Rfam assigns this 74-nucleotide sequence from Fukomys damarensis to the family "U1A polyadenylation inhibition element (PIE)". A search with the family's covariance model found it, with a score of 64 bits. The family's RNA type in Rfam is cis-regulatory element. A reference for the family is Clerte and Hall (2004), "Global and Local Dynamics of the U1A Polyadenylation Inhibition Element (PIE) RNA and PIE RNA-U1A Complexes", Biochemistry. From the family's description: This family represents the U1A polyadenylation inhibition element (PIE). PIE is a regulatory RNA which is responsible for the regulation of the length of the polyA tail of the U1A pre-mRNA. The PIE is located in the U1A mRNA 3' UTR. PIE adopts a U-shaped structure, with binding sites for a single U1A protein at each bend and when complexed with the two proteins it blocks activity of poly(A) polymerase (PAP), and inhibits its activity.
RNA sequence: CCACAGAGUAUUGUACCCAGAGCCUGACCCCAUAUAUUGCACCUGGCACUGUUAAGCUGGAAUUAAAAUGUUUC
Numbered sequence: 001c002c003a004c005a006g007a008g009u010a011u012u013g014u015a016c017c018c019a020g021a022g023c024c025u026g027a028c029c030c031c032a033u034a035u036a037u038u039g040c041a042c043c044u045g046g047c048a049c050u051g052u053u054a055a056g057c058u059g060g061a062a063u064u065a066a067a068a069u070g071u072u073u074c
Stems, first nucleotide, its partner, number of pairs: 005052001007050003017046004022035001025032002